[Rfam]
RNA sequence: CUCAUCCUUCGGGGCGGGGUGAAAUUCCCCACCGGCAGUGAAAGGUCCCUGAGAUGGGGACCUGCAGCCUGCGAAGCCUUGCAAUCCACAUCGCGAGGCCCGAGCCUGGUGAGACUCCAGCGCCGACGGUCACAGUCCGGAUGAGAGAAGGAGAUC
Numbered sequence: 001c002u003c004a005u006c007c008u009u010c011g012g013g014g015c016g017g018g019g020u021g022a023a024a025u026u027c028c029c030c031a032c033c034g035g036c037a038g039u040g041a042a043a044g045g046u047c048c049c050u051g052a053g054a055u056g057g058g059g060a061c062c063u064g065c066a067g068c069c070u071g072c073g074a075a076g077c078c079u080u081g082c083a084a085u086c087c088a089c090a091u092c093g094c095g096a097g098g099c100c101c102g103a104g105c106c107u108g109g110u111g112a113g114a115c116u117c118c119a120g121c122g123c124c125g126a127c128g129g130u131c132a133c134a135g136u137c138c139g140g141a142u143g144a145g146a147g148a149a150g151g152a153g154a155u156c
Stems, first nucleotide, its partner, number of pairs: 005152006017029003031136002033125002035072004067123002076099004104121001106120004127139003